[Rfam]
RNA: Small nucleolar RNA SNORD34
RNA sequence: GGAGGCUUAUGAUGCUUUCAUAACUGCCUACAUUGUCCGACUGUUUUCUGAGAGAAAUGAAUUUGUUCUGAAGCCUAC
Numbered sequence: 001g002g003a004g005g006c007u008u009a010u011g012a013u014g015c016u017u018u019c020a021u022a023a024c025u026g027c028c029u030a031c032a033u034u035g036u037c038c039g040a041c042u043g044u045u046u047u048c049u050g051a052g053a054g055a056a057a058u059g060a061a062u063u064u065g066u067u068c069u070g071a072a073g074c075c076u077a078c
Stems, first nucleotide, its partner, number of pairs: 001078001004075004